[Rfam]
RNA sequence: GGCGUAAAGGGCGCGUAGGCGGAUUAUCAAGUCUCUUGUGAAAUCUAAUGGCUUAACCAUUAAACUGCUUGGGAAACUGAUAGUCUAGAGUGAGGGAGAGGCAGAUGGAAUUGGUGGUGUAGGGGUAAAAUCCGUAGAUAUCACCAAGAAUACCCAUUGCGAAGGCGAUCUGCUGGAACUCAACUGACGCUAAGGCGCGAAAGCGUGGGGAGCAAACAGGAUUAGAUACCCUGGUAGUCCACGCCCUAAACGAUGUAUGCUAGUUGUUGGGGUGCUAGUCAUCUCAGUAAUGCAGCUAACGCAUUAAGCAUACCGCCUGGGGAGUACGGUCGCAAGAUUAAAACUCAAAGGAAU
Numbered sequence: 001g002g003c004g005u006a007a008a009g010g011g012c013g014c015g016u017a018g019g020c021g022g023a024u025u026a027u028c029a030a031g032u033c034u035c036u037u038g039u040g041a042a043a044u045c046u047a048a049u050g051g052c053u054u055a056a057c058c059a060u061u062a063a064a065c066u067g068c069u070u071g072g073g074a075a076a077c078u079g080a081u082a083g084u085c086u087a088g089a090g091u092g093a094g095g096g097a098g099a100g101g102c103a104g105a106u107g108g109a110a111u112u113g114g115u116g117g118u119g120u121a122g123g124g125g126u127a128a129a130a131u132c133c134g135u136a137g138a139u140a141u142c143a144c145c146a147a148g149a150a151u152a153c154c155c156a157u158u159g160c161g162a163a164g165g166c167g168a169u170c171u172g173c174u175g176g177a178a179c180u181c182a183a184c185u186g187a188c189g190c191u192a193a194g195g196c197g198c199g200a201a202a203g204c205g206u207g208g209g210g211a212g213c214a215a216a217c218a219g220g221a222u223u224a225g226a227u228a229c230c231c232u233g234g235u236a237g238u239c240c241a242c243g244c245c246c247u248a249a250a251c252g253a254u255g256u257a258u259g260c261u262a263g264u265u266g267u268u269g270g271g272g273u274g275c276u277a278g279u280c281a282u283c284u285c286a287g288u289a290a291u292g293c294a295g296c297u298a299a300c301g302c303a304u305u306a307a308g309c310a311u312a313c314c315g316c317c318u319g320g321g322g323a324g325u326a327c328g329g330u331c332g333c334a335a336g337a338u339u340a341a342a343a344c345u346c347a348a349a350g351g352a353a354u
Stems, first nucleotide, its partner, number of pairs: 001317003009314001011198004016192001018191003022085007030078002032074004038068003046062006089185003092181003100174007107151001111147008122133003159166002203244006212238002217233004255313006263291012295302002319346003328339004
This 354-nucleotide part of an RNA from Campylobacter upsaliensis belongs to the Rfam family "Bacterial small subunit ribosomal RNA". The base pairs follow the family's consensus structure, which is taken from published work. Taxonomically the source falls in Campylobacter upsaliensis (Bacteria, Pseudomonadati, Epsilonproteobacteria, Campylobacterales).